[Rfam]
Rfam assigns this 75-nucleotide sequence from Myotis brandtii to the family "mir-9223 microRNA precursor family". The family has 9 seed sequences and 14,641 matches in Rfam 15.1. A search with the family's covariance model found it, with a score of 80 bits. The base pairs follow the family's consensus structure, which was predicted with RNAalifold. The organism belongs to Myotis, within Eukaryota. Gene Ontology terms of the family: miRNA-mediated post-transcriptional gene silencing and RISC complex.
RNA sequence: GGUGGUUUUCAGGGGACGCACCCUGGAAUCGGGCUCUCUCCUCUCUGGUUCUGGGUGUGUCACCCAAGAACCACA
Numbered sequence: 001g002g003u004g005g006u007u008u009u010c011a012g013g014g015g016a017c018g019c020a021c022c023c024u025g026g027a028a029u030c031g032g033g034c035u036c037u038c039u040c041c042u043c044u045c046u047g048g049u050u051c052u053g054g055g056u057g058u059g060u061c062a063c064c065c066a067a068g069a070a071c072c073a074c075a
Stems, first nucleotide, its partner, number of pairs: 002074002005071005012064002015061003019057005025052009